[Rfam]
The family of this 44-nucleotide RNA is "L31-Actinobacteria ribosomal protein leader". The sequence is in the family's curated seed alignment. It is annotated as a cis-regulatory leader. The family's consensus secondary structure is taken from published work.
RNA sequence: UCGGUUCUGGUUCACGGCGCCCGUCGGGCGCCGACCCAGCGACC
Numbered sequence: 001u002c003g004g005u006u007c008u009g010g011u012u013c014a015c016g017g018c019g020c021c022c023g024u025c026g027g028g029c030g031c032c033g034a035c036c037c038a039g040c041g042a043c044c
Base pairs, nucleotide, nucleotide: 003044004043005042007039008038009037010036015033016032017031018030019029020028021027022026